[Rfam]
RNA sequence: CCCUCGCUCAACAAAUCGCCAUCGAAGCUUCAAACGGAGACCAUUCUUCGGAAUGUCUCAUUCUCAUGCUUUGGGAGAAAGUCCCCGGACAAUCUUCUUUCUUCACGAAAGAGGAACGCCGAAAGGCGCCGCCAUAGAAGCACCACGCGGCUGAUCUCCGCCCUCCUCCGUCUCUCAGUCUGACGUCUUGCCUGCCCCUCCCACCGCUACAUCUUCAGGUAUCCGCCGCUGCUUUCCAGUAGGACGCUCACCUGGGAAGAGACCACAUGGACGAAGAUACGAGUCCGCGCUCUUCCCGGGCGCUUGUUCACAGAGAUUGUGGUGGUGGGGCUUUUCGAUGGUGGGGUUGGACGCGACGGCGGUCUGGUGCUGAGAGGCCUUGUGUGGGGAGGCUUGCUGGAGAGUGUUUUCGUCGAGAUAUGAUAGGUAUGCGAUUGCCUAGGUCGGGGCUUCGGCUUUAGACUUGGUUACUCGAUGGGGCUCAUUCUUGGUGCGAGG
Numbered sequence: 001c002c003c004u005c006g007c008u009c010a011a012c013a014a015a016u017c018g019c020c021a022u023c024g025a026a027g028c029u030u031c032a033a034a035c036g037g038a039g040a041c042c043a044u045u046c047u048u049c050g051g052a053a054u055g056u057c058u059c060a061u062u063c064u065c066a067u068g069c070u071u072u073g074g075g076a077g078a079a080a081g082u083c084c085c086c087g088g089a090c091a092a093u094c095u096u097c098u099u100u101c102u103u104c105a106c107g108a109a110a111g112a113g114g115a116a117c118g119c120c121g122a123a124a125g126g127c128g129c130c131g132c133c134a135u136a137g138a139a140g141c142a143c144c145a146c147g148c149g150g151c152u153g154a155u156c157u158c159c160g161c162c163c164u165c166c167u168c169c170g171u172c173u174c175u176c177a178g179u180c181u182g183a184c185g186u187c188u189u190g191c192c193u194g195c196c197c198c199u200c201c202c203a204c205c206g207c208u209a210c211a212u213c214u215u216c217a218g219g220u221a222u223c224c225g226c227c228g229c230u231g232c233u234u235u236c237c238a239g240u241a242g243g244a245c246g247c248u249c250a251c252c253u254g255g256g257a258a259g260a261g262a263c264c265a266c267a268u269g270g271a272c273g274a275a276g277a278u279a280c281g282a283g284u285c286c287g288c289g290c291u292c293u294u295c296c297c298g299g300g301c302g303c304u305u306g307u308u309c310a311c312a313g314a315g316a317u318u319g320u321g322g323u324g325g326u327g328g329g330g331c332u333u334u335u336c337g338a339u340g341g342u343g344g345g346g347u348u349g350g351a352c353g354c355g356a357c358g359g360c361g362g363u364c365u366g367g368u369g370c371u372g373a374g375a376g377g378c379c380u381u382g383u384g385u386g387g388g389g390a391g392g393c394u395u396g397c398u399g400g401a402g403a404g405u406g407u408u409u410u411c412g413u414c415g416a417g418a419u420a421u422g423a424u425a426g427g428u429a430u431g432c433g434a435u436u437g438c439c440u441a442g443g444u445c446g447g448g449g450c451u452u453c454g455g456c457u458u459u460a461g462a463c464u465u466g467g468u469u470a471c472u473c474g475a476u477g478g479g480g481c482u483c484a485u486u487c488u489u490g491g492u493g494c495g496a497g498g
Stems, first nucleotide, its partner, number of pairs: 002498006008491004014436006022075001023073006037059005080482002083480004096115004117128004291392006300385004308377002311374001438467002441464002
Overview
Rfam assigns this 498-nucleotide RNA from Gnomoniopsis smithogilvyi to the family "RNase MRP". About the family: RNase MRP is an enzymatically active ribonucleoprotein with two distinct roles in eukaryotes. NCBI's taxonomy places the organism under Eukaryota, Fungi, sordariomyceta, Gnomoniaceae, Gnomoniopsis. By type it is a ribozyme.